Nucleotides: 084
Stems, first nucleotide, its partner, number of pairs: 001084006
Number, partner (000 for none) and nucleotide at each position: 001084u002083c003082u004081g005080g006079c007000a008000a009000u010000g011000a012000u013000g014000a015000c016000a017000c018000a019000c020000u021000u022000g023000c024000c025000c026000u027000c028000a029000c030000u031000g032000a033000g034000a035000a036000c037000a038000c039000u040000g041000u042000u043000c044000a045000a046000u047000a048000a049000u050000g051000a052000g053000c054000u055000u056000c057000a058000c059000c060000g061000u062000g063000u064000g065000c066000u067000c068000a069000a070000a071000u072000g073000a074000g075000c076000u077000g078000a079006g080005c081004c082003a083002g084001a